[Rfam]
RNA sequence: UCGCCCACAAUGCCUUUCACGGGUUCAGCACGGAUGCGGCCGAGUAGUGUCUUCGGACAACUCGACGGCUGGUCGGCGUAAGCGCCGAAGCUCUCUCACCAGGGGCAUCUCUGCUGGAGUCGUAAUCGGCGCGGAUUGCGCCGGUGGUCGGUUCCUCCUAUGGUCUCCUCGCGCUAACCCCGUAGCGUGUGGUUUUUAGCGGGCUCCAGGCCCGCUUUUUUUU
Numbered sequence: 001u002c003g004c005c006c007a008c009a010a011u012g013c014c015u016u017u018c019a020c021g022g023g024u025u026c027a028g029c030a031c032g033g034a035u036g037c038g039g040c041c042g043a044g045u046a047g048u049g050u051c052u053u054c055g056g057a058c059a060a061c062u063c064g065a066c067g068g069c070u071g072g073u074c075g076g077c078g079u080a081a082g083c084g085c086c087g088a089a090g091c092u093c094u095c096u097c098a099c100c101a102g103g104g105g106c107a108u109c110u111c112u113g114c115u116g117g118a119g120u121c122g123u124a125a126u127c128g129g130c131g132c133g134g135a136u137u138g139c140g141c142c143g144g145u146g147g148u149c150g151g152u153u154c155c156u157c158c159u160a161u162g163g164u165c166u167c168c169u170c171g172c173g174c175u176a177a178c179c180c181c182g183u184a185g186c187g188u189g190u191g192g193u194u195u196u197u198a199g200c201g202g203g204c205u206c207c208a209g210g211c212c213c214g215c216u217u218u219u220u221u222u223u
Stems, first nucleotide, its partner, number of pairs: 005163003019123004024118007032110006038070003043062003048059003073088005091104004126144005167192002170189007198216008

The family of this 223-nucleotide RNA from Paraburkholderia diazotrophica is "Burkholderia sRNA Bp1_Cand871_SIPHT". For this family Rfam cites "Computational discovery and RT-PCR validation of novel Burkholderia conserved and Burkholderia pseudomallei unique sRNAs" (Khoo et al., BMC Genomics, 2012). It is annotated as a small RNA.